[Rfam]
RNA sequence: GCUCCCCCUCUCCAAUCCUUUGUCCCUGGGUGAGCGUGCUUUGAAAAUGCAGUGCACCCAGGCAAGGAUUGAGAGAGGGCUGGC
Numbered sequence: 001g002c003u004c005c006c007c008c009u010c011u012c013c014a015a016u017c018c019u020u021u022g023u024c025c026c027u028g029g030g031u032g033a034g035c036g037u038g039c040u041u042u043g044a045a046a047a048u049g050c051a052g053u054g055c056a057c058c059c060a061g062g063c064a065a066g067g068a069u070u071g072a073g074a075g076a077g078g079g080c081u082g083g084c
Base pairs, nucleotide, nucleotide: 014070015069016068017067018066019065020064025062026061027060028059029058030057031056032055037051038050039049

Annotation
A member of the RNA family "mir-500 microRNA precursor family" from Chinchilla lanigera, 84 nucleotides long. Taxonomically the source falls in Chinchilla (Eukaryota, Gnathostomata, Sarcopterygii, Boreoeutheria). The family has 38 seed sequences and 402 matches in Rfam 15.1. For this family Rfam cites "Small RNA expression and strain specificity in the rat" (Linsen et al., BMC Genomics, 2010).